The record is an 81-nucleotide RNA sequence from Catellatospora sp. IY07-71, which matches "tRNA" in Rfam. Gene Ontology term of the family: triplet codon-amino acid adaptor activity. A search with the family's covariance model found it, with a score of 50 bits. By type it is a transfer RNA. The base pairs follow the family's consensus structure, which is taken from published work.

RNA sequence: GCCCGGGUGGUGGAACGGCAGACACGGUUGCCUUAAAAGCGACUGCCGAAAGGCGUGCGGGUUCGACCCCCGCCCCGGGCA
Numbered sequence: 001g002c003c004c005g006g007g008u009g010g011u012g013g014a015a016c017g018g019c020a021g022a023c024a025c026g027g028u029u030g031c032c033u034u035a036a037a038a039g040c041g042a043c044u045g046c047c048g049a050a051a052g053g054c055g056u057g058c059g060g061g062u063u064c065g066a067c068c069c070c071c072g073c074c075c076c077g078g079g080c081a
Stems, first nucleotide, its partner, number of pairs: 001080007010025003027043005057073005